The record is a 307-nucleotide RNA from Phtheirospermum japonicum, which matches "Plant signal recognition particle RNA" in Rfam. The match comes from Rfam's covariance-model search (241 bits). NCBI's taxonomy places the organism under Eukaryota, Streptophyta, Magnoliopsida, Gunneridae, Phtheirospermum.
RNA sequence: GCCGAGCCCAGUAACUUGGGCUUGUAACCCUAGUGGGGGCAUCAGGGUGAUUGGACAUUUGGGCUAACCCAACUUGUUGGGUUCUUUGGCAGCUACAUGCUAGCCUGCCCAUUCCAAGUGGGGAGAGGGUCAUGUGGUCCGAGCGAAAGCUUGGGCUUCUUGGCUCGUAGAGCGGAGGGCACCGCGUCAGGCUGGCUUCACAGAGCAGCGAUAACCUCCCGCUCUCUACAGUGGAAGGAUAACGGGCUGGUGCUCCUUGGCCCACUAAAAGCAAGAUGGGCUUGUCCAAGUCUGAACAAUCACCUUC
Numbered sequence: 001g002c003c004g005a006g007c008c009c010a011g012u013a014a015c016u017u018g019g020g021c022u023u024g025u026a027a028c029c030c031u032a033g034u035g036g037g038g039g040c041a042u043c044a045g046g047g048u049g050a051u052u053g054g055a056c057a058u059u060u061g062g063g064c065u066a067a068c069c070c071a072a073c074u075u076g077u078u079g080g081g082u083u084c085u086u087u088g089g090c091a092g093c094u095a096c097a098u099g100c101u102a103g104c105c106u107g108c109c110c111a112u113u114c115c116a117a118g119u120g121g122g123g124a125g126a127g128g129g130u131c132a133u134g135u136g137g138u139c140c141g142a143g144c145g146a147a148a149g150c151u152u153g154g155g156c157u158u159c160u161u162g163g164c165u166c167g168u169a170g171a172g173c174g175g176a177g178g179g180c181a182c183c184g185c186g187u188c189a190g191g192c193u194g195g196c197u198u199c200a201c202a203g204a205g206c207a208g209c210g211a212u213a214a215c216c217u218c219c220c221g222c223u224c225u226c227u228a229c230a231g232u233g234g235a236a237g238g239a240u241a242a243c244g245g246g247c248u249g250g251u252g253c254u255c256c257u258u259g260g261c262c263c264a265c266u267a268a269a270a271g272c273a274a275g276a277u278g279g280g281c282u283u284g285u286c287c288a289a290g291u292c293u294g295a296a297c298a299a300u301c302a303c304c305u306u307c
Stems, first nucleotide, its partner, number of pairs: 001040003004023008028037003044306010056294002058290003062286003066282001069279003073275006079263004084259001088256001091254002094252002100250008109238002112236005118229008127166006134159001136157009174219005185210003192203003